Shown here is a 108-nucleotide RNA from Dissulfurispira thermophila, a member of the family "PyrR binding site". Its family is annotated with pyrimidine nucleobase transport and pyrimidine nucleobase biosynthetic process in the Gene Ontology. This family represents the PyrR binding site and terminator structure. Taxonomically the source falls in Dissulfurispira (Bacteria, Nitrospirota, Thermodesulfovibrionia, Dissulfurispiraceae).
RNA sequence: AUUACCUUUAAGAAUAGCCCUGUGAGGCUAAGAAGGUAAGGAGACAUUGUGAAAUAUAAGUACAAGAUAAUAUGCCUUCCUCUAAAAACAGGGGAAGGCUUUUUUAUG
Numbered sequence: 001a002u003u004a005c006c007u008u009u010a011a012g013a014a015u016a017g018c019c020c021u022g023u024g025a026g027g028c029u030a031a032g033a034a035g036g037u038a039a040g041g042a043g044a045c046a047u048u049g050u051g052a053a054a055u056a057u058a059a060g061u062a063c064a065a066g067a068u069a070a071u072a073u074g075c076c077u078u079c080c081u082c083u084a085a086a087a088a089c090a091g092g093g094g095a096a097g098g099c100u101u102u103u104u105u106a107u108g
Stems, first nucleotide, its partner, number of pairs: 003038007015030005047065005055060001070103001072101001074099010